Background
This 104-nucleotide sequence from Planococcus lenghuensis belongs to the Rfam family "SAM riboswitch aptamer (S box leader)". A search with the family's covariance model found it, with a score of 86 bits.
RNA sequence: UUCUUAUCCAGAGAGGCGGAGGGACUGGCCCGAAGAAACCUCAGCAACAGACUGCGACAAACAGUACUGUGCUAAUUCCAGAAGCGUAAGCUUGGAGAUGAGAA
Number, nucleotide and partner (000 for none) at each position: 001u104002u103003c102004u101005u100006a099007u098008c097009c000010a000011g000012a000013g042014a041015g040016g039017c000018g000019g000020a000021g031022g030023g029024a000025c081026u080027g079028g078029c023030c022031c021032g000033a000034a000035g000036a000037a000038a000039c016040c015041u014042c013043a073044g072045c071046a070047a000048c069049a068050g000051a065052c064053u063054g062055c000056g000057a000058c000059a000060a000061a000062c054063a053064g052065u051066a000067c000068u049069g048070u046071g045072c044073u043074a000075a000076u000077u096078c028079c027080a026081g025082a093083a092084g091085c090086g000087u000088a000089a000090g085091c084092u083093u082094g000095g000096a077097g008098a007099u006100g005101a004102g003103a002104a001

The base pairs follow the family's consensus structure, which is taken from published work. Taxonomically the source falls in Planococcus (Bacteria, Bacillati, Bacilli, Caryophanaceae).